The record is a 140-nucleotide RNA from Mesorhizobium sp. L-8-10, which matches "Group II catalytic intron D1-D4-4" in Rfam. NCBI's taxonomy places the organism under Bacteria, Pseudomonadati, Pseudomonadota, Alphaproteobacteria, Mesorhizobium.

[Rfam]
RNA sequence: CAGUGCAGGAAGUAUCCACCCAGUGAGUUGUCGCUUGAACUGGUAGCUGGCAGGCGGUUUGUCCGGGUAACUGGAUGGAUCGAAGCCCUGCGACAAAGUCCGCCUUGGGCGGUUGAGCGAGCCGAUGGGCCGUAACGUGA
Dot-bracket structure: ...................(((((..............)))))......(((((((((((...(.(....).)...))))))....)))))......(.((((.....)))).)..(((...........))).......
On this family, see Chu et al., EMBO J 2001: "Control of branch-site choice by a group II intron".